[Rfam]
Nucleotides: 058
Stems, first nucleotide, its partner, number of pairs: 007052017
Number, partner (000 for none) and nucleotide at each position: 001000c002000a003000u004000u005000u006000g007052u008051g009050a010049g011048a012047a013046c014045u015044u016043u017042u018041u019040g020039a021038a022037u023036c024000a025000a026000g027000u028000a029000a030000u031000a032000u033000g034000c035000c036023g037022a038021u039020u040019c041018a042017a043016a044015a045014g046013g047012u048011u049010c050009u051008c052007a053000a054000c055000g056000g057000u058000u
The record is a 58-nucleotide RNA sequence from Croton tiglium, which matches "Plastid-ccsA-ndhD-2 3UTR RNA" in Rfam. The organism belongs to Croton, within Eukaryota. Pairs were carried over by alignment from the consensus structure, which was predicted with LocARNA. Rfam describes the family as follows. Plastid ccsA-ndhD-2 is a non-coding RNA (ncRNA) recognised in plastids. It was found in the three prime untranslated region (3UTR) of ccsA and ndhD genes, its 3UTR location suggests a role in transcript maturation. Rfam's curators put it in the seed alignment. On this family, see Richter et al., Plant Commun 2023: "Retrograde signaling in plants: A critical review focusing on the GUN pathway and beyond".